RNA: Plastid-psbA-4 3UTR RNA
Organism: Pedicularis cheilanthifolia
RNA sequence: AUAUAAGGAGCAAGAAGCCCUUUUUUGUUAUAUCAAAAGGGGGCUUCUUGCUCCUUAUCU
Numbered sequence: 001a002u003a004u005a006a007g008g009a010g011c012a013a014g015a016a017g018c019c020c021u022u023u024u025u026u027g028u029u030a031u032a033u034c035a036a037a038a039g040g041g042g043g044c045u046u047c048u049u050g051c052u053c054c055u056u057a058u059c060u
Base pairs, nucleotide, nucleotide: 004057005056006055007054008053009052010051011050012049013048014047015046019042020041022039023038024037025036026035027034